[Rfam]
RNA sequence: GGCCGUUCUCAGGUACACACCCUGGAAAUGGGCUUCCUCCUCUCUAGUUCCAGGUGCGUCACCUGAGAACCGCA
Numbered sequence: 001g002g003c004c005g006u007u008c009u010c011a012g013g014u015a016c017a018c019a020c021c022c023u024g025g026a027a028a029u030g031g032g033c034u035u036c037c038u039c040c041u042c043u044c045u046a047g048u049u050c051c052a053g054g055u056g057c058g059u060c061a062c063c064u065g066a067g068a069a070c071c072g073c074a
Stems, first nucleotide, its partner, number of pairs: 002073002005070010015059002018056004024051004029046004
RNA: mir-9223 microRNA precursor family
Organism: Cnephaeus nilssonii